[Rfam]
RNA sequence: GCGUAGGCUUGGCCGUGUGGUUACUUCGAUAUUCAAUUGGACACCCCCAAUGGACCACUGGCGCUGUCCUACGUUUUG
Numbered sequence: 001g002c003g004u005a006g007g008c009u010u011g012g013c014c015g016u017g018u019g020g021u022u023a024c025u026u027c028g029a030u031a032u033u034c035a036a037u038u039g040g041a042c043a044c045c046c047c048c049a050a051u052g053g054a055c056c057a058c059u060g061g062c063g064c065u066g067u068c069c070u071a072c073g074u075u076u077u078g
Base pairs, nucleotide, nucleotide: 002073003072004071005070006069007068012062013061014060015059017058018057019056020055026054027053029051
RNA: Vault RNA